The record is a 367-nucleotide part of an RNA from Prauserella flavalba, which matches "Bacterial large subunit ribosomal RNA" in Rfam. The match comes from Rfam's covariance-model search (2717 bits).
RNA sequence: CGGGUGAACUGUGGUUAAGGAACUCGGCAAAUUGCCCCCGUAACUUCGGGAGAAGGGGGGCCAAGCCUGCUGAAGCCUUUUUCGGGCUAGGUGGGAGUGGCCGCAGAGACCAGCGGAAAGCGACUGUUUACUAAAAACACAGGUCCAUGCGAAGACGCAAGUCGAUGUAUAUGGACUGACGCCUGCCCGGUGCUGGAACGUUAAGAGGACCGGUUAACUCCUUUCGGGGGGUGAAGCUGAGAAUUUAAGCGCCAGUAAACGGCGGUGGUAACUAUAACCAUCCUAAGGUAGCGAAAUUCCUUGUCGGGUAAGUUCCGACCUGCACGAAUGGCGUAACGACUUUCCGGCUGUCUCAACCACAGGCCCG
Numbered sequence: 001c002g003g004g005u006g007a008a009c010u011g012u013g014g015u016u017a018a019g020g021a022a023c024u025c026g027g028c029a030a031a032u033u034g035c036c037c038c039c040g041u042a043a044c045u046u047c048g049g050g051a052g053a054a055g056g057g058g059g060g061c062c063a064a065g066c067c068u069g070c071u072g073a074a075g076c077c078u079u080u081u082u083c084g085g086g087c088u089a090g091g092u093g094g095g096a097g098u099g100g101c102c103g104c105a106g107a108g109a110c111c112a113g114c115g116g117a118a119a120g121c122g123a124c125u126g127u128u129u130a131c132u133a134a135a136a137a138c139a140c141a142g143g144u145c146c147a148u149g150c151g152a153a154g155a156c157g158c159a160a161g162u163c164g165a166u167g168u169a170u171a172u173g174g175a176c177u178g179a180c181g182c183c184u185g186c187c188c189g190g191u192g193c194u195g196g197a198a199c200g201u202u203a204a205g206a207g208g209a210c211c212g213g214u215u216a217a218c219u220c221c222u223u224u225c226g227g228g229g230g231g232u233g234a235a236g237c238u239g240a241g242a243a244u245u246u247a248a249g250c251g252c253c254a255g256u257a258a259a260c261g262g263c264g265g266u267g268g269u270a271a272c273u274a275u276a277a278c279c280a281u282c283c284u285a286a287g288g289u290a291g292c293g294a295a296a297u298u299c300c301u302u303g304u305c306g307g308g309u310a311a312g313u314u315c316c317g318a319c320c321u322g323c324a325c326g327a328a329u330g331g332c333g334u335a336a337c338g339a340c341u342u343u344c345c346g347g348c349u350g351u352c353u354c355a356a357c358c359a360c361a362g363g364c365c366c367g
Stems, first nucleotide, its partner, number of pairs: 001367004009362008018353003035059005044049001060101004102106001114346007121338002125139003142177008150167001154163003180333004185263003190260002192256005199251003205245002211239004217232006264282006283287001293320001303319006